[Rfam]
A member of the RNA family "MIR7993 microRNA precursor family" from Anisodus acutangulus, 140 nucleotides long.
RNA sequence: UUAAGUUGACCACAUAAAAUAUGUCAUCUCCUUUAGUUAUACACAUCAUCCUCAAUUGAAACAUGCCUGAGUUUUAUGGCUUAUUGAGGCUAAUGCGUAUAAUUAAAGGAGGUGACAUAUUUUAAGUGGUUAAUUUAUCU
Dot-bracket structure: .((((((((((((.(((((((((((..(((((((((((((((.(((...(((..................................)))...))).)))))))))))))))..))))))))))).))))))))))))...
The source organism's lineage runs through Eukaryota, Magnoliopsida, Mesangiospermae, Pentapetalae and Anisodus. Pairs were carried over by alignment from the consensus structure, which was predicted with RNAalifold. Rfam 15.1 lists 59 matches to the family in 6 species.